[Rfam]
Nucleotides: 128
Base pairs, nucleotide, nucleotide: 003125004124005123006122007121013115014114015113017111018110019109020108021107022106024104025103026102027101029099030098031097032096033095
Number, partner (000 for none) and nucleotide at each position: 001000c002000u003125u004124u005123g006122u007121a008000u009000u010000c011000u012000u013115c014114c015113a016000c017111a018110g019109c020108u021107u022106u023000c024104u025103u026102g027101a028000a029099c030098u031097g032096c033095a034000u035000g036000c037000u038000g039000u040000u041000u042000u043000u044000g045000u046000u047000g048000c049000g050000a051000g052000c053000g054000a055000g056000c057000c058000a059000u060000a061000u062000a063000c064000g065000g066000c067000c068000a069000c070000u071000u072000u073000g074000a075000c076000a077000a078000a079000c080000a081000c082000u083000a084000c085000a086000u087000u088000u089000u090000u091000g092000u093000c094000u095033u096032g097031c098030g099029g100000u101027u102026c103025a104024a105000u106022a107021a108020a109019g110018c111017u112000g113015u114014g115013g116000g117000a118000a119000g120000a121007u122006a123005c124004g125003g126000a127000c128000a